[Rfam]
Shown here is a 122-nucleotide RNA from Salmo trutta, a member of the family "Small nucleolar RNA SNORA49".
By type it is an H/ACA-box small nucleolar RNA.
The family's consensus secondary structure was predicted with RNAalifold.
The organism belongs to Salmo, within Eukaryota.
The match comes from Rfam's covariance-model search (54 bits).
From the family's description: The snoRNA ACA49 has no identified RNA target. NB genomic sequence 1-nt different from published.
Rfam links the family to the GO terms nucleolus and RNA processing.
RNA sequence: CUUCCCCUCCCUUACUCCAGUCACUCUGUACUCAGUGGUCUGGCAUUGACAGGGGAUACAGCACCGUGGCCCUCUCAUCUAGGACUAUUCUCCUAUAUGAGGCUUGUGAGAGAGCUGACAAU
Numbered sequence: 001c002u003u004c005c006c007c008u009c010c011c012u013u014a015c016u017c018c019a020g021u022c023a024c025u026c027u028g029u030a031c032u033c034a035g036u037g038g039u040c041u042g043g044c045a046u047u048g049a050c051a052g053g054g055g056a057u058a059c060a061g062c063a064c065c066g067u068g069g070c071c072c073u074c075u076c077a078u079c080u081a082g083g084a085c086u087a088u089u090c091u092c093c094u095a096u097a098u099g100a101g102g103c104u105u106g107u108g109a110g111a112g113a114g115c116u117g118a119c120a121a122u
Stems, first nucleotide, its partner, number of pairs: 003056006011048001017043004022038001023036003060116003064112001074101005080095004